[Rfam]
RNA sequence: ACUAUGUAGUAGUUAAAACCGCAGACAGCAGGUGGCUUGCCUUAAUUUCCUGCCGAGGUUACUGAAUCUGAUUUUAGUACUCGCAUUGUGUCUGCAAUGUGAUUUUUUAUUGUAAAA
Numbered sequence: 001a002c003u004a005u006g007u008a009g010u011a012g013u014u015a016a017a018a019c020c021g022c023a024g025a026c027a028g029c030a031g032g033u034g035g036c037u038u039g040c041c042u043u044a045a046u047u048u049c050c051u052g053c054c055g056a057g058g059u060u061a062c063u064g065a066a067u068c069u070g071a072u073u074u075u076a077g078u079a080c081u082c083g084c085a086u087u088g089u090g091u092c093u094g095c096a097a098u099g100u101g102a103u104u105u106u107u108u109a110u111u112g113u114a115a116a117a
Stems, first nucleotide, its partner, number of pairs: 028053005034041002081102009
RNA: Ribosomal protein L10 leader